Background
This 180-nucleotide sequence from Felis catus belongs to the Rfam family "Small nucleolar RNA SNORA81". Its family is annotated with RNA processing and nucleolus in the Gene Ontology. Taxonomically the source falls in Felis (Eukaryota, Craniata, Teleostomi, Mammalia). The family has 28 seed sequences and 1,161 matches in Rfam 15.1.

RNA sequence: ACCUUCUUACUUAAGCUCUGUACUAAAAUUACAGAAAGUAGUAACCGUGUUUUAGUAUUUAUAAAUAAAGCAGCAGAGUAAACAAAAGAAGAGAAACAACUAUACCAGAUAAUAGAAAAACUGAGCUGAAUCUCUUUCAUAAGUCCAGGAUACUUUGUUCUAAAAUUUGGUACAAUAAUA
Numbered sequence: 001a002c003c004u005u006c007u008u009a010c011u012u013a014a015g016c017u018c019u020g021u022a023c024u025a026a027a028a029u030u031a032c033a034g035a036a037a038g039u040a041g042u043a044a045c046c047g048u049g050u051u052u053u054a055g056u057a058u059u060u061a062u063a064a065a066u067a068a069a070g071c072a073g074c075a076g077a078g079u080a081a082a083c084a085a086a087a088g089a090a091g092a093g094a095a096a097c098a099a100c101u102a103u104a105c106c107a108g109a110u111a112a113u114a115g116a117a118a119a120a121c122u123g124a125g126c127u128g129a130a131u132c133u134c135u136u137u138c139a140u141a142a143g144u145c146c147a148g149g150a151u152a153c154u155u156u157g158u159u160c161u162a163a164a165a166u167u168u169g170g171u172a173c174a175a176u177a178a179u180a
Stems, first nucleotide, its partner, number of pairs: 018078002021075001023073002029068003034059002037056001039054003043051003101174001103172007123151001127147002130144001